Record summary:
The family of this 132-nucleotide sequence from Gymnodraco acuticeps is "U8 small nucleolar RNA". The literature on the family includes a 2001 paper in Gene by Peculis et al., "The U8 snoRNA gene family: identification and characterization of distinct, functional U8 genes in Xenopus". The family has 55 seed sequences and 1,597 matches in Rfam 15.1. The base pairs follow the family's consensus structure, which is taken from published work. The organism belongs to Gymnodraco, within Eukaryota.
RNA sequence: UCUUCAGUGAGGUACAUCCUUACCUGUUACUCCUAAUAAGGAGUUUCAGAACAUGAUGAAUGGAGAACCAUGAGAUAUGAUUAAUGUCUCCAUCUUAGAGGGAACUGCAACACCCUCUAAGACCAUUCUGAC
Numbered sequence: 001u002c003u004u005c006a007g008u009g010a011g012g013u014a015c016a017u018c019c020u021u022a023c024c025u026g027u028u029a030c031u032c033c034u035a036a037u038a039a040g041g042a043g044u045u046u047c048a049g050a051a052c053a054u055g056a057u058g059a060a061u062g063g064a065g066a067a068c069c070a071u072g073a074g075a076u077a078u079g080a081u082u083a084a085u086g087u088c089u090c091c092a093u094c095u096u097a098g099a100g101g102g103a104a105c106u107g108c109a110a111c112a113c114c115c116u117c118u119a120a121g122a123c124c125a126u127u128c129u130g131a132c
Stems, first nucleotide, its partner, number of pairs: 024049003029044005072090002075087003078083001094121009
Dot-bracket structure: .......................(((..(((((......)))))..)))......................((.((((....).))).))...(((((((((..........)))))))))...........